Annotation
A member of the RNA family "Small nucleolar RNA Z159/U59" from Glycine max, 86 nucleotides long. Its family is annotated with nucleolus and RNA processing in the Gene Ontology. A search with the family's covariance model found it, with a score of 46 bits. Rfam 15.1 lists 1,401 matches to the family in 272 species. A reference for the family is Chen et al. (2003), "The high diversity of snoRNAs in plants: identification and comparative study of 120 snoRNA genes from Oryza sativa", Nucleic Acids Res. Clan: SNORD59 clan. The organism belongs to Glycine subgen. Soja, within Eukaryota.
RNA sequence: UCCUUCUAGGAUGAACAAAAAAUCAAAAUUUCGUUCUUCUGAGCUGUUUCAUGUGGAUAAAUAUUGGAGACAUGAAUUGAGAAGGC
Numbered sequence: 001u002c003c004u005u006c007u008a009g010g011a012u013g014a015a016c017a018a019a020a021a022a023u024c025a026a027a028a029u030u031u032c033g034u035u036c037u038u039c040u041g042a043g044c045u046g047u048u049u050c051a052u053g054u055g056g057a058u059a060a061a062u063a064u065u066g067g068a069g070a071c072a073u074g075a076a077u078u079g080a081g082a083a084g085g086c
Base pairs, nucleotide, nucleotide: 003084004083005082006081